[Rfam]
Record summary
The record is a 227-nucleotide RNA from Simkania sp., which matches "Group II catalytic intron D1-D4-6" in Rfam. Taxonomically the source falls in Simkania (Bacteria, Chlamydiota, Chlamydiia, Simkaniaceae).
RNA sequence: AAAAUCCCAUCUGGACAAGCGAGGCCAGCAUCCAGAACCGAGUCCUUGGACCCUUGACGGCGACGUCCGGGGCUAAGCGUAGGACAGGGGAAAACAGGCCGUAAGGAAAGUGAACUUAUUGAGCUUCGAAAACACACGUGGGUGCCGACUGAUUCCGACGAAAGGAAGGCUACACCUCGCACAACGAAUGGCAAGAUGUGAGAGAGACCCACCGGAGUCCUAGGAGA
Numbered sequence: 001a002a003a004a005u006c007c008c009a010u011c012u013g014g015a016c017a018a019g020c021g022a023g024g025c026c027a028g029c030a031u032c033c034a035g036a037a038c039c040g041a042g043u044c045c046u047u048g049g050a051c052c053c054u055u056g057a058c059g060g061c062g063a064c065g066u067c068c069g070g071g072g073c074u075a076a077g078c079g080u081a082g083g084a085c086a087g088g089g090g091a092a093a094a095c096a097g098g099c100c101g102u103a104a105g106g107a108a109a110g111u112g113a114a115c116u117u118a119u120u121g122a123g124c125u126u127c128g129a130a131a132a133c134a135c136a137c138g139u140g141g142g143u144g145c146c147g148a149c150u151g152a153u154u155c156c157g158a159c160g161a162a163a164g165g166a167a168g169g170c171u172a173c174a175c176c177u178c179g180c181a182c183a184a185c186g187a188a189u190g191g192c193a194a195g196a197u198g199u200g201a202g203a204g205a206g207a208c209c210c211a212c213c214g215g216a217g218u219c220c221u222a223g224g225a226g227a
Stems, first nucleotide, its partner, number of pairs: 010036005019029002024192002038088002042085001044083003047079002049074001051072004056067004121219001123218006138212006144170003149164002175206001176204003180200004185195001
Dot-bracket structure: .........(((((....((...[[..))..))))).((..(.((((((.((((.((((....)))).)))).)...)).))).).))................................(.((((((.........(((((((((..((............))...)))....((((.((((.(.....]]..).)))).))).))))))))))))))........